[Rfam]
RNA: Small nucleolar RNA U19
Organism: Camellia sinensis
RNA sequence: GAUUGGCUUAGUUAAGGGGCAUACACUAAUUUUGACCUAGAAAGAGUUAUUCUUUCUGGGUUUUCUUCUAUGGCUUCUUUCAGAGGAUUCUCUGUUUCACCCUCAGUUGUCCUCCAAGCAGCCUUGGACAUAU
Numbered sequence: 001g002a003u004u005g006g007c008u009u010a011g012u013u014a015a016g017g018g019g020c021a022u023a024c025a026c027u028a029a030u031u032u033u034g035a036c037c038u039a040g041a042a043a044g045a046g047u048u049a050u051u052c053u054u055u056c057u058g059g060g061u062u063u064u065c066u067u068c069u070a071u072g073g074c075u076u077c078u079u080u081c082a083g084a085g086g087a088u089u090c091u092c093u094g095u096u097u098c099a100c101c102c103u104c105a106g107u108u109g110u111c112c113u114c115c116a117a118g119c120a121g122c123c124u125u126g127g128a129c130a131u132a133u
Base pairs, nucleotide, nucleotide: 004021005020007018008017009016034062035061036060037059038058045055046054068127069126070125072123073122074121078118079117080116083114084113085112086111087110088109091106
Dot-bracket structure: ...((.(((......))).))............(((((......((.......))..))))).....(((.(((...(((..((((((..(..............)..)))))).)))..))).)))......